mir-1000 microRNA precursor family: a 72-nucleotide RNA sequence from Cryptotermes secundus. A search with the family's covariance model found it, with a score of 77 bits. Its family is annotated with RISC complex, miRNA-mediated post-transcriptional gene silencing and negative regulation of glutamate secretion, neurotransmission in the Gene Ontology.
[Rfam]
RNA sequence: GUCUGUGAUAUUGUCCUGUCACAGCAGUACUGAUCACAGAAUAUACUGCUGUUUCGGGACAUAACCACAGGC
Numbered sequence: 001g002u003c004u005g006u007g008a009u010a011u012u013g014u015c016c017u018g019u020c021a022c023a024g025c026a027g028u029a030c031u032g033a034u035c036a037c038a039g040a041a042u043a044u045a046c047u048g049c050u051g052u053u054u055c056g057g058g059a060c061a062u063a064a065c066c067a068c069a070g071g072c
Base pairs, nucleotide, nucleotide: 003070004069005068006067012061013060014059015058016057017056018055022051023050024049025048026047027046028045029044